The record is a 324-nucleotide RNA sequence from Thermosipho africanus, which matches "Bacterial RNase P class A" in Rfam. Rfam classes the family as a ribozyme. Ribonuclease P (RNase P) is a ubiquitous endoribonuclease, found in archaea, bacteria and eukarya as well as chloroplasts and mitochondria. Lineage of the source: Bacteria > Thermotogati > Thermotogae > Fervidobacteriaceae > Thermosipho africanus.
[Rfam]
RNA sequence: UGAGUGGAGCGAGGAGGCGCAGCUUUAAAGCUGAGGAAAGUCCGGACUCCGUGGGCAGGGUGCCGGAUAACAUCCGGAGGGAGUGAUCCCUGGACAGGGCCAUAGAGAAGAAAACCACCACUAUGGUAAGGGUGGAACGGUGAGGUAAGAGCUCACCAGGUAUGGAGUAAUCCAUACGCUUGGCAACCCCCACCUGGAGCAAGGUCAAGCAGGGUUUGGGUGGCCCGCCCUAUAACCCGGGUAGACCGCUUGAGGAAUUUGGUAACAAAUUCCCAAGAUAGAUGCCUCCAAAAACAGAAUCCGGCUUACCGCUCCACUCAUUUU
Numbered sequence: 001u002g003a004g005u006g007g008a009g010c011g012a013g014g015a016g017g018c019g020c021a022g023c024u025u026u027a028a029a030g031c032u033g034a035g036g037a038a039a040g041u042c043c044g045g046a047c048u049c050c051g052u053g054g055g056c057a058g059g060g061u062g063c064c065g066g067a068u069a070a071c072a073u074c075c076g077g078a079g080g081g082a083g084u085g086a087u088c089c090c091u092g093g094a095c096a097g098g099g100c101c102a103u104a105g106a107g108a109a110g111a112a113a114a115c116c117a118c119c120a121c122u123a124u125g126g127u128a129a130g131g132g133u134g135g136a137a138c139g140g141u142g143a144g145g146u147a148a149g150a151g152c153u154c155a156c157c158a159g160g161u162a163u164g165g166a167g168u169a170a171u172c173c174a175u176a177c178g179c180u181u182g183g184c185a186a187c188c189c190c191c192a193c194c195u196g197g198a199g200c201a202a203g204g205u206c207a208a209g210c211a212g213g214g215u216u217u218g219g220g221u222g223g224c225c226c227g228c229c230c231u232a233u234a235a236c237c238c239g240g241g242u243a244g245a246c247c248g249c250u251u252g253a254g255g256a257a258u259u260u261g262g263u264a265a266c267a268a269a270u271u272c273c274c275a276a277g278a279u280a281g282a283u284g285c286c287u288c289c290a291a292a293a294a295c296a297g298a299a300u301c302c303g304g305c306u307u308a309c310c311g312c313u314c315c316a317c318u319c320a321u322u323u324u
Stems, first nucleotide, its partner, number of pairs: 001320010011309001013289006020033005038307003042304005047199004053226004058195005063077005078091005092190002097188002099184003115131002117127004139157006159179001160177007203247004213237004218230004254273008